[Rfam]
RNA sequence: UUGACAGAAGAGAGUGAGCACACGCAGGCAUUCGUACAAAGAGUGUACCUGUGUUUAUACGUGUGCUCACUCCUCUUCCUGUCAG
Numbered sequence: 001u002u003g004a005c006a007g008a009a010g011a012g013a014g015u016g017a018g019c020a021c022a023c024g025c026a027g028g029c030a031u032u033c034g035u036a037c038a039a040a041g042a043g044u045g046u047a048c049c050u051g052u053g054u055u056u057a058u059a060c061g062u063g064u065g066c067u068c069a070c071u072c073c074u075c076u077u078c079c080u081g082u083c084a085g
Stems, first nucleotide, its partner, number of pairs: 001085007009077001010075003013071009023061002

Shown here is an 85-nucleotide sequence from Dorcoceras hygrometricum, a member of the family "mir-156 microRNA precursor family". Pairs were carried over by alignment from the consensus structure, which was predicted with PFOLD. On this family, see Reinhart et al., Genes Dev 2002: "MicroRNAs in plants". The organism belongs to Dorcoceras, within Eukaryota.